[Rfam]
RNA sequence: CUCACAGAAGCUCUGGACUUGGGAUUCCGAUGGCUGUUUACACUCAUUCAGCUGCUUAAUCCACUGGUCCAGCUCCUUGGUGAA
Numbered sequence: 001c002u003c004a005c006a007g008a009a010g011c012u013c014u015g016g017a018c019u020u021g022g023g024a025u026u027c028c029g030a031u032g033g034c035u036g037u038u039u040a041c042a043c044u045c046a047u048u049c050a051g052c053u054g055c056u057u058a059a060u061c062c063a064c065u066g067g068u069c070c071a072g073c074u075c076c077u078u079g080g081u082g083a084a
Stems, first nucleotide, its partner, number of pairs: 002083004007078002010075001013072007021064001022062003026059001029056001031054006040047001
This 84-nucleotide RNA from Fukomys damarensis belongs to the Rfam family "mir-3661 microRNA precursor family". The base pairs follow the family's consensus structure, which was predicted with RNAalifold. Taxonomically the source falls in Fukomys (Eukaryota, Deuterostomia, Boreoeutheria, Rodentia). It scores 77 bits against the family's covariance model.